[Rfam]
Shown here is an 88-nucleotide sequence from Sporolactobacillus shoreae, a member of the family "c-di-GMP-I riboswitch aptamer". GEMM was predicted in a large-scale screen for bacterial structured RNA regulatory elements. Gene Ontology term of the family: cyclic-di-GMP binding. NCBI's taxonomy places the organism under Bacteria, Bacillota, Caryophanales, Sporolactobacillaceae, Sporolactobacillus.
RNA sequence: UACCUAUCAAGGCAAAUUUUACGAAAGUAUGAGACGCAAAGCCACGGGCCUAAAGCAUCAUUAAUGUCACGGCAGCCGGGUUGCCAGG
Numbered sequence: 001u002a003c004c005u006a007u008c009a010a011g012g013c014a015a016a017u018u019u020u021a022c023g024a025a026a027g028u029a030u031g032a033g034a035c036g037c038a039a040a041g042c043c044a045c046g047g048g049c050c051u052a053a054a055g056c057a058u059c060a061u062u063a064a065u066g067u068c069a070c071g072g073c074a075g076c077c078g079g080g081u082u083g084c085c086a087g088g
Stems, first nucleotide, its partner, number of pairs: 012037002017032002020029003040082004045078003048073003055067004